[Rfam]
RNA sequence: CUCGAGUUGUCUCUCAUGUCUAGACCAUUUGUGAGAAGGGAUUUACUGUUUGCCCAAUCAACCUCACCAAUCUCUAAAUCUGCCAUUAGUAUUAUGCUCAUUUAAGAAAACUAGCAUCUAGAAAAUAGGUACAUAAAGUGCAUGAAUGACUUUUGCGGAUGCUGUACACAUAUUUUUUUUUAUAGAAUCAGUUCAUGCUGGUUCUCCAAAUCAUAUACAGUUUUGGACAUAUAUUUUUCCUAAGAGAUGUCAAACUUCUAUAUGGAUUGUUAGAAGGUCAUGAUAUCUUAGAAUUUGUAGCUUGCACUACUUAGCUACAUUAGUUCACUUGUUAAAAGUUGGGAAGUUGGGGAGGUGCUGGGUUAUUCCCUUCUCAUCGAUGGUCUAGAUGUGCAAGGUGACUCUCAUAGUGU
Numbered sequence: 001c002u003c004g005a006g007u008u009g010u011c012u013c014u015c016a017u018g019u020c021u022a023g024a025c026c027a028u029u030u031g032u033g034a035g036a037a038g039g040g041a042u043u044u045a046c047u048g049u050u051u052g053c054c055c056a057a058u059c060a061a062c063c064u065c066a067c068c069a070a071u072c073u074c075u076a077a078a079u080c081u082g083c084c085a086u087u088a089g090u091a092u093u094a095u096g097c098u099c100a101u102u103u104a105a106g107a108a109a110a111c112u113a114g115c116a117u118c119u120a121g122a123a124a125a126u127a128g129g130u131a132c133a134u135a136a137a138g139u140g141c142a143u144g145a146a147u148g149a150c151u152u153u154u155g156c157g158g159a160u161g162c163u164g165u166a167c168a169c170a171u172a173u174u175u176u177u178u179u180u181u182a183u184a185g186a187a188u189c190a191g192u193u194c195a196u197g198c199u200g201g202u203u204c205u206c207c208a209a210a211u212c213a214u215a216u217a218c219a220g221u222u223u224u225g226g227a228c229a230u231a232u233a234u235u236u237u238u239c240c241u242a243a244g245a246g247a248u249g250u251c252a253a254a255c256u257u258c259u260a261u262a263u264g265g266a267u268u269g270u271u272a273g274a275a276g277g278u279c280a281u282g283a284u285a286u287c288u289u290a291g292a293a294u295u296u297g298u299a300g301c302u303u304g305c306a307c308u309a310c311u312u313a314g315c316u317a318c319a320u321u322a323g324u325u326c327a328c329u330u331g332u333u334a335a336a337a338g339u340u341g342g343g344a345a346g347u348u349g350g351g352g353a354g355g356u357g358c359u360g361g362g363u364u365a366u367u368c369c370c371u372u373c374u375c376a377u378c379g380a381u382g383g384u385c386u387a388g389a390u391g392u393g394c395a396a397g398g399u400g401a402c403u404c405u406c407a408u409a410g411u412g413u
Stems, first nucleotide, its partner, number of pairs: 001412001003410001004404009015393015031377011052358002054355002068349003073344003
Dot-bracket structure: (.((((((((((..(((((((((((((((.(((((((((((..........((((............(((..(((..........................................................................................................................................................................................................................................................................)))..)))....)).))........))))))))))).)))))))))))))))..))))))))).....).).

A member of the RNA family "MIR824 microRNA precursor family" from Brassica napus, 413 nucleotides long.
The base pairs follow the family's consensus structure, which was predicted with WAR.
On this family, see Rajagopalan et al., Genes Dev 2006: "A diverse and evolutionarily fluid set of microRNAs in Arabidopsis thaliana".